[Rfam]
RNA sequence: AAAUAGCCCUGAUGGAGUGAAAAUCCUCGCCAUUUUUCUUGGCGAGAUUGUAAUGACAGCAGGAUUAUGG
Numbered sequence: 001a002a003a004u005a006g007c008c009c010u011g012a013u014g015g016a017g018u019g020a021a022a023a024u025c026c027u028c029g030c031c032a033u034u035u036u037u038c039u040u041g042g043c044g045a046g047a048u049u050g051u052a053a054u055g056a057c058a059g060c061a062g063g064a065u066u067a068u069g070g
Stems, first nucleotide, its partner, number of pairs: 009062003013058002017054002022049004028044005